[Rfam]
Overview: A member of the RNA family "ncRNA Repressor of NFAT (nuclear factor of activated T cells)" from Alectura lathami, 305 nucleotides long. On this family, see Willingham et al., Science 2005: "A strategy for probing the function of noncoding RNAs finds a repressor of NFAT". Lineage of the source: Eukaryota > Gnathostomata > Euteleostomi > Sauropsida > Alectura.
RNA sequence: UCCAUAUAAGAAAAUCCCUUUUAAUGAGAAGUGAUACAGCCAUGAACUCUCUGGAGCCAUAAUUAGAGCAAACUAAUUGAAGUUGUGUUUUGACACACUUUCCAAAUUCACGGGUGCUGCAUGACAUAUUCACAACACUGCUGCUGCACAGCCAUGGCGACAGCAAAAUCAUUAGGCUAAUAACGCUUAUUUGCAUUCCUGUCAUGCAGCAGCACGCCAGUAAAUCCUGCCUCCACCAGUGCUCGUUUACUCUGAAAGUUCCCACUGAAGGAUACUAACAGUAAUUAUCGGUACUUUACUGGAAU
Dot-bracket structure: ((((...(((.....(..(((....)))..)....(.((..((...(((....))).........(((((........((((.(((((....)))))))))...........((.((........................(((((........)))))...(((..........((.((((.....)))).))..........)))....))...)).....................)))))....................................))..)).).....)))...))))..